[Rfam]
RNA sequence: UGACCGAUCUCUGAAGUGAUUCAGAGGGUGAAGGCCAUACGGACAGCCGGGUCAAAAGCCGA
Number, nucleotide and partner (000 for none) at each position: 001u054002g053003a052004c051005c050006g029007a000008u027009c026010u025011c024012u023013g022014a021015a020016g000017u000018g000019a000020u015021u014022c013023a012024g011025a010026g009027g008028g000029u006030g000031a000032a000033g000034g000035c000036c000037a000038u000039a000040c000041g000042g000043a000044c000045a000046g000047c000048c000049g000050g005051g004052u003053c002054a001055a000056a000057a000058g000059c000060c000061g000062a000
RNA: Streptococcus sRNA SpF59 (ldcC RNA)
Organism: Syntrophobotulus glycolicus